[Rfam]
RNA sequence: GGGUGCUCAGGAUCUUUCUGCUCUGGGCAUGAAAUAAAAUUUAUGCAGGGACAGAAUGAGAAAAGCCCCGAACUGAUAUUACAUCAACUCGAGGCGUCCCUUAUGUCCAACAACGUAAAGGUAGCGCCUCAUAUGCAGGAAUGCAAGGAAAAGGAGGUCUAUG
Dot-bracket structure: (((.(((.....((.(((((.((...(((((((......)))))))..)).))))).))....))))))((..((((.....))).).))(((((..((.(((((........))))).))....)))))...(...................).........
RNA: sok antitoxin (CssrC)